[Rfam]
RNA: Bacterial large subunit ribosomal RNA, nucleotides 2625 to 2872
Organism: Cecembia lonarensis
RNA sequence: UGGGAAGUUUGAGGAGACCUGACCUUAGUACGAGAGGACCGGGUUGGACUGACCGCUGGUGUACCGGUUGUGGUGCCAACUGCACUGCCGGGUAGCUACGUCGGGAAGAGAUAAGCGCUGAAAGCAUCUAAGUGCGAAACUCCCUCCGAGAUGAGACUUCCAAACAGGGCCGUCAGAGACGAUGACGUUGAUAGGCUGCAGGUGUAAAGUCAGUAAUGACAAAGCUGAGCAGUACUAAUAGCCCGAAA
Numbered sequence: 001u002g003g004g005a006a007g008u009u010u011g012a013g014g015a016g017a018c019c020u021g022a023c024c025u026u027a028g029u030a031c032g033a034g035a036g037g038a039c040c041g042g043g044u045u046g047g048a049c050u051g052a053c054c055g056c057u058g059g060u061g062u063a064c065c066g067g068u069u070g071u072g073g074u075g076c077c078a079a080c081u082g083c084a085c086u087g088c089c090g091g092g093u094a095g096c097u098a099c100g101u102c103g104g105g106a107a108g109a110g111a112u113a114a115g116c117g118c119u120g121a122a123a124g125c126a127u128c129u130a131a132g133u134g135c136g137a138a139a140c141u142c143c144c145u146c147c148g149a150g151a152u153g154a155g156a157c158u159u160c161c162a163a164a165c166a167g168g169g170c171c172g173u174c175a176g177a178g179a180c181g182a183u184g185a186c187g188u189u190g191a192u193a194g195g196c197u198g199c200a201g202g203u204g205u206a207a208a209g210u211c212a213g214u215a216a217u218g219a220c221a222a223a224g225c226u227g228a229g230c231a232g233u234a235c236u237a238a239u240a241g242c243c244c245g246a247a248a
Stems, first nucleotide, its partner, number of pairs: 003161008013147004019047007049104005057098003064091005069084006108142003115135005167244004171187005192237003195233005201226002205221001209220004